RNA: tRNA
Organism: Paracoccaceae bacterium
RNA sequence: GGGCCGUUAGCUCAGCUGGAUUAGAGCAGGGAACUUCUAAUUCUCAGGUCGGGGGUUCGAAUCCUCCACGGCUCG
Numbered sequence: 001g002g003g004c005c006g007u008u009a010g011c012u013c014a015g016c017u018g019g020a021u022u023a024g025a026g027c028a029g030g031g032a033a034c035u036u037c038u039a040a041u042u043c044u045c046a047g048g049u050c051g052g053g054g055g056u057u058c059g060a061a062u063c064c065u066c067c068a069c070g071g072c073u074c075g
Stems, first nucleotide, its partner, number of pairs: 001074007010027004029045005051067005